[Rfam]
RNA sequence: AGAGGUCACAAGUUUGAGUCCAUAGCAAAAGCACUCAUGGUGCAGCUCUGUCAUAUUCCAACAAAUCUGUGAAUUCUGCU
Numbered sequence: 001a002g003a004g005g006u007c008a009c010a011a012g013u014u015u016g017a018g019u020c021c022a023u024a025g026c027a028a029a030a031g032c033a034c035u036c037a038u039g040g041u042g043c044a045g046c047u048c049u050g051u052c053a054u055a056u057u058c059c060a061a062c063a064a065a066u067c068u069g070u071g072a073a074u075u076c077u078g079c080u
Base pairs, nucleotide, nucleotide: 016048017047018046020045024080025079026078027077029075030074031043032042033041052069053068055066056065057064
Background
Shown here is an 80-nucleotide RNA sequence from Alligator mississippiensis, a member of the family "Mammalian CPEB3 ribozyme". From the family's description: The mammalian CPEB3 ribozyme is a self cleaving RNA located in the second intron of the CPEB3 gene which belongs to a family of genes regulating messenger RNA polyadenylation. NCBI's taxonomy places the organism under Eukaryota, Gnathostomata, Euteleostomi, Sauria, Alligator.